[Rfam]
RNA sequence: AGAAAACAGAGUAUUUAGAUGUUUAACAGGCCGUCAAACUUGUUUCUCACUGUUUUCUUAAUUACUGCAUUUUCCUUAUUAACUCCUAUACUUGUAUCCGCCCAAACCGCGUUGGUUUGGGCUUUUUUUU
Numbered sequence: 001a002g003a004a005a006a007c008a009g010a011g012u013a014u015u016u017a018g019a020u021g022u023u024u025a026a027c028a029g030g031c032c033g034u035c036a037a038a039c040u041u042g043u044u045u046c047u048c049a050c051u052g053u054u055u056u057c058u059u060a061a062u063u064a065c066u067g068c069a070u071u072u073u074c075c076u077u078a079u080u081a082a083c084u085c086c087u088a089u090a091c092u093u094g095u096a097u098c099c100g101c102c103c104a105a106a107c108c109g110c111g112u113u114g115g116u117u118u119g120g121g122c123u124u125u126u127u128u129u130u
Stems, first nucleotide, its partner, number of pairs: 001063002003059001004055006017047003030044001032042002100122009